[Rfam]
This 71-nucleotide RNA sequence from Acanthosepion pharaonis belongs to the Rfam family "mir-34 microRNA precursor family".
The family has 113 seed sequences and 2,256 matches in Rfam 15.1.
From the family's description: Human mir-34a was discovered computationally and later experimentally verified. The mature sequence is excised from the 5' arm of the hairpin.
Lineage of the source: Eukaryota > Metazoa > Bilateria > Decapodiformes > Acanthosepion.
The family is grouped with related families in Rfam's "mir-34 clan".

RNA sequence: GGUUGUUUGGCAGUGUGGUUAGCUGGUUUGUAAGCCACACUCACAACCACUAUCUGCACUUCCAUGCAAAC
Numbered sequence: 001g002g003u004u005g006u007u008u009g010g011c012a013g014u015g016u017g018g019u020u021a022g023c024u025g026g027u028u029u030g031u032a033a034g035c036c037a038c039a040c041u042c043a044c045a046a047c048c049a050c051u052a053u054c055u056g057c058a059c060u061u062c063c064a065u066g067c068a069a070a071c
Stems, first nucleotide, its partner, number of pairs: 003069004009063002012060007020052003024049005030044002